[Rfam]
Description
A member of the RNA family "c-di-AMP riboswitch aptamer (ydaO/yuaA leader)" from Sporomusa termitida, 137 nucleotides long. The source organism's lineage runs through Bacteria, Bacillota, Selenomonadales, Sporomusaceae and Sporomusa. The match comes from Rfam's covariance-model search (83 bits). From the family's description: This family represents a conserved RNA structure found upstream of the ydaO and yuaA genes in Bacillus subtilis and related genes in other bacteria.

RNA sequence: GCGUAUAGAAAGCCGAAUCCAGCUCCAGUACGGGGGAACCACUUUACGGGGGUGAAACCGGAGACUGUUAUGUCUCCGGUAGGGUGCCUGCAACCCUAACCCGGCAGCUAACCUCGGAGGCCAGCGAGAGGAGAAAC
Numbered sequence: 001g002c003g004u005a006u007a008g009a010a011a012g013c014c015g016a017a018u019c020c021a022g023c024u025c026c027a028g029u030a031c032g033g034g035g036g037a038a039c040c041a042c043u044u045u046a047c048g049g050g051g052g053u054g055a056a057a058c059c060g061g062a063g064a065c066u067g068u069u070a071u072g073u074c075u076c077c078g079g080u081a082g083g084g085u086g087c088c089u090g091c092a093a094c095c096c097u098a099a100c101c102c103g104g105c106a107g108c109u110a111a112c113c114u115c116g117g118a119g120g121c122c123a124g125c126g127a128g129a130g131g132a133g134a135a136a137c
Base pairs, nucleotide, nucleotide: 012121013120014119019028031116032115033114034113035112040049050102051101052100058079059078060077061076062075063074064073065072082096083095084094085093
Dot-bracket structure: ...........(((....(........)..(((((....(........)(((.....((((((((......))))))))..((((.......))))...))).........)))))..)))................